About this RNA: This 72-nucleotide RNA sequence from Crocodylus porosus belongs to the Rfam family "Mammalian CPEB3 ribozyme". The base pairs follow the family's consensus structure, which is taken from published work. The match comes from Rfam's covariance-model search (44 bits).
RNA sequence: UAUAGAUGGGUGGGGGUCAUAGCAGAAGCAUUCGUGUUGCAAUCCCGUCAGGUAAUACCCGAGAAUUCUGCU
Dot-bracket structure: ............[[[[[...((((((((((.......))).]]]]]..(.(((...))).)....)))))))
Numbered sequence: 001u002a003u004a005g006a007u008g009g010g011u012g013g014g015g016g017u018c019a020u021a022g023c024a025g026a027a028g029c030a031u032u033c034g035u036g037u038u039g040c041a042a043u044c045c046c047g048u049c050a051g052g053u054a055a056u057a058c059c060c061g062a063g064a065a066u067u068c069u070g071c072u
Stems, first nucleotide, its partner, number of pairs: 013046005021072007028040003049061001051059003